RNA sequence: AACACGCUCCUUAGAUCCACCUCUGGAGGACGCUGUGCUCUGAGCAGAGCUCCUCAGCAGCUUGCUGGCUGUACAGUUGGAGGUGCUUGAGUCAUUGGCGUGUGAGAACAGUCUACCUGUCCCCCAGCCCAACUGCAACACUGGCAACCCUGUCCUCUAAAGACAGGGAUCUCCCAGUGCUGCAAGCCUGGGGGACGGACAUG
Numbered sequence: 001a002a003c004a005c006g007c008u009c010c011u012u013a014g015a016u017c018c019a020c021c022u023c024u025g026g027a028g029g030a031c032g033c034u035g036u037g038c039u040c041u042g043a044g045c046a047g048a049g050c051u052c053c054u055c056a057g058c059a060g061c062u063u064g065c066u067g068g069c070u071g072u073a074c075a076g077u078u079g080g081a082g083g084u085g086c087u088u089g090a091g092u093c094a095u096u097g098g099c100g101u102g103u104g105a106g107a108a109c110a111g112u113c114u115a116c117c118u119g120u121c122c123c124c125c126a127g128c129c130c131a132a133c134u135g136c137a138a139c140a141c142u143g144g145c146a147a148c149c150c151u152g153u154c155c156u157c158u159a160a161a162g163a164c165a166g167g168g169a170u171c172u173c174c175c176a177g178u179g180c181u182g183c184a185a186g187c188c189u190g191g192g193g194g195a196c197g198g199a200c201a202u203g
Stems, first nucleotide, its partner, number of pairs: 002103007010091005018085008026055005032050003037045003057072006117198005124191001126189002129186001137181001139179006152172001154167003
Annotation: Small nucleolar RNA SNORA53: a 203-nucleotide RNA sequence from Sander lucioperca. It is annotated as an H/ACA-box small nucleolar RNA. Rfam describes the family as follows. The snoRNA ACA53 belongs to the H/ACA family of pseudouridylation guide snoRNAs. The organism belongs to Sander, within Eukaryota. A search with the family's covariance model found it, with a score of 87 bits.